[Rfam]
RNA sequence: AAGCUGCCUGCAUGUUCGCUGAUUCGUCAGCACAUGCCAGCAGCCAGGGUUCCAGGCUGCCGCGGGUCUCUCCCGCGUCACCCACCAGUCCGCAUCGCAUCAAUUCUGCGGAUGAGCGUCCCCGUGACGCUGAUGC
Numbered sequence: 001a002a003g004c005u006g007c008c009u010g011c012a013u014g015u016u017c018g019c020u021g022a023u024u025c026g027u028c029a030g031c032a033c034a035u036g037c038c039a040g041c042a043g044c045c046a047g048g049g050u051u052c053c054a055g056g057c058u059g060c061c062g063c064g065g066g067u068c069u070c071u072c073c074c075g076c077g078u079c080a081c082c083c084a085c086c087a088g089u090c091c092g093c094a095u096c097g098c099a100u101c102a103a104u105u106c107u108g109c110g111g112a113u114g115a116g117c118g119u120c121c122c123c124g125u126g127a128c129g130c131u132g133a134u135g136c
Stems, first nucleotide, its partner, number of pairs: 011036005018031005040060006047082002061077006108136003115131006
radC RNA: a 136-nucleotide RNA sequence. It is one of the family's seed sequences. The base pairs follow the family's consensus structure, which is taken from published work.